[Rfam]
RNA sequence: GGCUAGUGCGAGUGCAGUGGUGUUUACCAUUGAUUACAACUAGUUGCAGAUUUCUUUGUUUCCUUCUCCACUCCCACUGACUCACUUGACUGGCCUAAA
Numbered sequence: 001g002g003c004u005a006g007u008g009c010g011a012g013u014g015c016a017g018u019g020g021u022g023u024u025u026a027c028c029a030u031u032g033a034u035u036a037c038a039a040c041u042a043g044u045u046g047c048a049g050a051u052u053u054c055u056u057u058g059u060u061u062c063c064u065u066c067u068c069c070a071c072u073c074c075c076a077c078u079g080a081c082u083c084a085c086u087u088g089a090c091u092g093g094c095c096u097a098a099a
Base pairs, nucleotide, nucleotide: 001095002094003093004092005091006090007089010087011086014083016078017077018076019075020074022073029059030058032056033055
Dot-bracket structure: (((((((..((..(.(((((.(......((.((.....................)).)).............))))))....)..)).)))))))....
The record is a 99-nucleotide RNA sequence from Cercocebus atys, which matches "Y RNA" in Rfam. A reference for the family is Teunissen et al. (2000), "Conserved features of Y RNAs: a comparison of experimentally derived secondary structures", Nucleic Acids Res. The source organism's lineage runs through Eukaryota, Bilateria, Vertebrata, Sarcopterygii and Cercocebus. Y RNAs are components of the Ro ribonucleoprotein particle (Ro RNP), in association with Ro60 and La proteins.